[Rfam]
RNA sequence: UGUGUGUGACGGGAUGGCAGUGUAUCGUUAGCUGGUUGUAAAGCUUAAGGACACCAGCUAACAUGCAGCUGCUCUCCUGUUGCACAUG
Numbered sequence: 001u002g003u004g005u006g007u008g009a010c011g012g013g014a015u016g017g018c019a020g021u022g023u024a025u026c027g028u029u030a031g032c033u034g035g036u037u038g039u040a041a042a043g044c045u046u047a048a049g050g051a052c053a054c055c056a057g058c059u060a061a062c063a064u065g066c067a068g069c070u071g072c073u074c075u076c077c078u079g080u081u082g083c084a085c086a087u088g
Stems, first nucleotide, its partner, number of pairs: 001088013016073006022066003027062010